RNA: Selenocysteine transfer RNA
Organism: bacterium HR10
RNA sequence: GGAGGCGAAUGGGGUCUGGUGACUUCCCCGGGCUUCAAACCCGGUGGGCGACAGCGAGAGCUGACGCCGGUGGGUUCGAUUCCCACGCGCCUCC
Numbered sequence: 001g002g003a004g005g006c007g008a009a010u011g012g013g014g015u016c017u018g019g020u021g022a023c024u025u026c027c028c029c030g031g032g033c034u035u036c037a038a039a040c041c042c043g044g045u046g047g048g049c050g051a052c053a054g055c056g057a058g059a060g061c062u063g064a065c066g067c068c069g070g071u072g073g074g075u076u077c078g079a080u081u082c083c084c085a086c087g088c089g090c091c092u093c094c
Base pairs, nucleotide, nucleotide: 001094002093003092004091005090006089007088011026012025013024014023015022016021028044029043030042031041032040047068048067049066050065071085072084073083074082